[Rfam]
RNA sequence: UUGCAGUGAUGACAUCUUAGGACACCCUUGAUAUUCAAUAAUGAAAUGAUUCACCGUCUGAGCAAU
Numbered sequence: 001u002u003g004c005a006g007u008g009a010u011g012a013c014a015u016c017u018u019a020g021g022a023c024a025c026c027c028u029u030g031a032u033a034u035u036c037a038a039u040a041a042u043g044a045a046a047u048g049a050u051u052c053a054c055c056g057u058c059u060g061a062g063c064a065a066u
Stems, first nucleotide, its partner, number of pairs: 001065004
Rfam assigns this 66-nucleotide RNA from Candidula unifasciata to the family "Small nucleolar RNA SNORD58". The base pairs follow the family's consensus structure, which was predicted with PFOLD. It is annotated as a C/D-box small nucleolar RNA. About the family: snoRNA U58 is found in introns 1, 3 and 6 of the ribosomal protein RPL17 gene in humans. Its Rfam clan is "SNORD58 clan". Taxonomically the source falls in Candidula (Eukaryota, Eumetazoa, Gastropoda, Heterobranchia).